The family of this 151-nucleotide RNA from Shimia gijangensis is "Alphaproteobacterial ar14". Rfam's curators write: Smr14C2 was renamed NfeR1 (Nodule Formation Efficiency RNA) highly expressed in salt stress and during the symbiotic interaction on legume roots.
[Rfam]
RNA sequence: AAAUUGCGGUAGCUCCUCUCCUCCUCCCUGGGGCUGCCGCACAAAAUUCCGGGCCCACGGCCCAACAGACAGCAAGACGUUCUCUCCUCCUCCCUGAACGUUUUGCCGAAAAGAACGGCGGCGCUCUCCUCCCUUGCGUCGCCGUUUUUCU
Numbered sequence: 001a002a003a004u005u006g007c008g009g010u011a012g013c014u015c016c017u018c019u020c021c022u023c024c025u026c027c028c029u030g031g032g033g034c035u036g037c038c039g040c041a042c043a044a045a046a047u048u049c050c051g052g053g054c055c056c057a058c059g060g061c062c063c064a065a066c067a068g069a070c071a072g073c074a075a076g077a078c079g080u081u082c083u084c085u086c087c088u089c090c091u092c093c094c095u096g097a098a099c100g101u102u103u104u105g106c107c108g109a110a111a112a113g114a115a116c117g118g119c120g121g122c123g124c125u126c127u128c129c130u131c132c133c134u135u136g137c138g139u140c141g142c143c144g145u146u147u148u149u150c151u
Stems, first nucleotide, its partner, number of pairs: 007068001009066002012063001015060002073105010114146011